[Rfam]
RNA sequence: CCCUUAUUUAGAGCGGUGGAGAUACAUAGGAUCUGAGAAGCCCGGCAACCCCUUGCAUUUGAACAGCAUAAGGAAGGUGCCAACCUGAGCGAGAUUAUUCGAACAAUGAGAG
Dot-bracket structure: (.((((((....(.(((...(((...[..[)))......))))((((.((((((...............))))..))))))....]..]((((....))))...)))))).)
RNA: SAM riboswitch aptamer (S box leader)